[Rfam]
RNA sequence: UUCCAUCGCUAAGUCAAGGCUUCUUCCUACGACUCAUGUCGUGCUCUGCUCAAUGGAGGUCUGUCUGUUACAGCUUUGGUAGAUCAACACUGUCCCGCACCGACCUUCUUUCUGAAGCUAGGUUGAUGGGUCUUCGUCUUGAAGGCCUGUCGUAAGGGACGGCUGUGUUUUGUUUUUGAGUUGAGUUCUGCCUCUGCCUUUUUUGGUGGCUCAGUGGUAGAACUCUUAGUAACAUCCCACACAUUU
Numbered sequence: 001u002u003c004c005a006u007c008g009c010u011a012a013g014u015c016a017a018g019g020c021u022u023c024u025u026c027c028u029a030c031g032a033c034u035c036a037u038g039u040c041g042u043g044c045u046c047u048g049c050u051c052a053a054u055g056g057a058g059g060u061c062u063g064u065c066u067g068u069u070a071c072a073g074c075u076u077u078g079g080u081a082g083a084u085c086a087a088c089a090c091u092g093u094c095c096c097g098c099a100c101c102g103a104c105c106u107u108c109u110u111u112c113u114g115a116a117g118c119u120a121g122g123u124u125g126a127u128g129g130g131u132c133u134u135c136g137u138c139u140u141g142a143a144g145g146c147c148u149g150u151c152g153u154a155a156g157g158g159a160c161g162g163c164u165g166u167g168u169u170u171u172g173u174u175u176u177u178g179a180g181u182u183g184a185g186u187u188c189u190g191c192c193u194c195u196g197c198c199u200u201u202u203u204u205g206g207u208g209g210c211u212c213a214g215u216g217g218u219a220g221a222a223c224u225c226u227u228a229g230u231a232a233c234a235u236c237c238c239a240c241a242c243a244u245u246u
Stems, first nucleotide, its partner, number of pairs: 003079003017066004022059005028043005090162006098128002101125005106116003130146007165240003171234003183225004189219004194209005
A member of the RNA family "Small nucleolar RNA snR191" from Penicillium citrinum, 246 nucleotides long. Rfam links the family to the GO terms RNA processing and nucleolus. For this family Rfam cites "A snoRNA that guides the two most conserved pseudouridine modifications within rRNA confers a growth advantage in yeast" (Badis et al., RNA, 2003). The family's consensus secondary structure was predicted with WAR. It is annotated as an H/ACA-box small nucleolar RNA. Its Rfam clan is "SNORA74 clan". The match comes from Rfam's covariance-model search (67 bits).